[Rfam]
Nucleotides: 068
Base pairs, nucleotide, nucleotide: 001018002017003016004015006014007013008012030045031044032043033042034041035040
Number, partner (000 for none) and nucleotide at each position: 001018g002017g003016g004015g005000a006014c007013c008012u009000c010000a011000g012008g013007g014006g015004c016003c017002c018001u019000u020000u021000a022000c023000a024000c025000a026000g027000a028000c029000a030045g031044c032043c033042g034041g035040g036000a037000c038000c039000a040035c041034c042033c043032g044031g045030c046000g047000c048000g049000a050000g051000c052000u053000a054000a055000a056000c057000g058000g059000a060000a061000g062000a063000c064000a065000g066000a067000a068000a